Shown here is a 77-nucleotide RNA sequence from Ornithorhynchus anatinus, a member of the family "mir-130 microRNA precursor family". Rfam 15.1 lists 2,580 matches to the family in 658 species.

[Rfam]
RNA sequence: CCCAAGCCCGGGUUCUUUCUACUGAGCCACGCUGCUUCUCACCAGCGUGGCUCAGUGGAAAGAGCACAGGCUUUGGA
Number, nucleotide and partner (000 for none) at each position: 001c000002c076003c075004a000005a072006g071007c070008c069009c000010g067011g000012g065013u064014u063015c062016u061017u060018u059019c058020u000021a000022c055023u054024g053025a052026g051027c050028c049029a048030c047031g000032c000033u000034g000035c000036u000037u000038c000039u000040c000041a000042c000043c000044a000045g000046c000047g030048u029049g028050g027051c026052u025053c024054a023055g022056u000057g000058g019059a018060a017061a016062g015063a014064g013065c012066a000067c010068a000069g008070g007071c006072u005073u000074u000075g003076g002077a000